Background: A member of the RNA family "THF (Tetrahydrofolate) riboswitch aptamer" from Fructilactobacillus sanfranciscensis, 99 nucleotides long. Tetrahydrofolate (THF) riboswitch was first reported for Ames et al. as an RNA motif in 5' untranslated (5'-UTR)regions of folate transport and biosynthesis genes in Firmicutes genomes. The literature on the family includes a 2010 paper in Chem Biol by Ames et al., "A eubacterial riboswitch class that senses the coenzyme tetrahydrofolate".
RNA sequence: AUUGGAGUAGAAAUUAGCGCGUUAAGUGUCGAUGGAACGGAAUGUGAACAUCGGACGAAAAACUUCAACGUUUGCGGUUCUAAUUUCGCAUUCGCCACU
Numbered sequence: 001a002u003u004g005g006a007g008u009a010g011a012a013a014u015u016a017g018c019g020c021g022u023u024a025a026g027u028g029u030c031g032a033u034g035g036a037a038c039g040g041a042a043u044g045u046g047a048a049c050a051u052c053g054g055a056c057g058a059a060a061a062a063c064u065u066c067a068a069c070g071u072u073u074g075c076g077g078u079u080c081u082a083a084u085u086u087c088g089c090a091u092u093c094g095c096c097a098c099u
Base pairs, nucleotide, nucleotide: 001099003097004096005095010087011086012085013084014083015082016081017080019078020076021075022074026056027055029054030053031052032051033050034049040093041092042091043090044089060073061072062071063070